Notes:
Small nucleolar RNA ACA64: a 131-nucleotide RNA from Parambassis ranga. Pairs were carried over by alignment from the consensus structure, which was predicted with WAR.
RNA sequence: ACAGACUGAAAAUGACCUCAGGUCUAUCAGUGAUCUGGGGUCAGAUACCUGUGCCAACAGUAUUCUGGUGCAUUAAGCUUAUUGCGCUUGUCGCUUGGUGGCAGCGUGAUAAAACCCAUGUGCCGACAUCA
Number, nucleotide and partner (000 for none) at each position: 001a000002c000003a000004g000005a052006c051007u000008g049009a000010a046011a000012a000013u043014g042015a041016c040017c000018u000019c000020a000021g035022g034023u033024c032025u000026a000027u000028c000029a000030g000031u000032g024033a023034u022035c021036u000037g000038g000039g000040g016041u015042c014043a013044g000045a000046u010047a000048c000049c008050u000051g006052u005053g000054c000055c000056a000057a000058c000059a000060g000061u000062a000063u000064u000065c000066u000067g124068g000069u122070g121071c120072a119073u118074u000075a000076a000077g000078c000079u112080u111081a110082u109083u108084g000085c000086g000087c000088u000089u103090g102091u101092c000093g000094c000095u000096u000097g000098g000099u000100g000101g091102c090103a089104g000105c000106g000107u000108g083109a082110u081111a080112a079113a000114a000115c000116c000117c000118a073119u072120g071121u070122g069123c000124c067125g000126a000127c000128a000129u000130c000131a000
The family's RNA type in Rfam is H/ACA-box small nucleolar RNA.